[Rfam]
RNA sequence: GCUGGGACCAGUUGGGACCAAUCAUGGGCAAAAAAAGAGUGUUUUGUCCAUCGUUGCAGUCUUCCUAGAGUGAAGUGGAGGUCUCUGUCUGCUUUAGGAGAGCCAGCUAAACCAGAUCGUUCCCCUCCAUACAUG
Numbered sequence: 001g002c003u004g005g006g007a008c009c010a011g012u013u014g015g016g017a018c019c020a021a022u023c024a025u026g027g028g029c030a031a032a033a034a035a036a037g038a039g040u041g042u043u044u045u046g047u048c049c050a051u052c053g054u055u056g057c058a059g060u061c062u063u064c065c066u067a068g069a070g071u072g073a074a075g076u077g078g079a080g081g082u083c084u085c086u087g088u089c090u091g092c093u094u095u096a097g098g099a100g101a102g103c104c105a106g107c108u109a110a111a112c113c114a115g116a117u118c119g120u121u122c123c124c125c126u127c128c129a130u131a132c133a134u135g
Stems, first nucleotide, its partner, number of pairs: 004065003009059001011057002024051006034043002077128005085119001087117003091113001093111005
Rfam assigns this 135-nucleotide RNA sequence from Atlantisia rogersi to the family "Small Cajal body specific RNA 3". Its family is annotated with nucleolus, RNA processing and Cajal body in the Gene Ontology. A search with the family's covariance model found it, with a score of 101 bits. Rfam describes the family as follows. scaRNAs are a specific class of small nuclear RNAs which localise to the Cajal bodies and guide the modification of RNA polymerase II transcribed spliceosomal RNAs U1, U2, U4, U5 and U12. A reference for the family is Darzacq et al. (2002), "Cajal body-specific small nuclear RNAs: a novel class of 2'-O-methylation and pseudouridylation guide RNAs", EMBO J.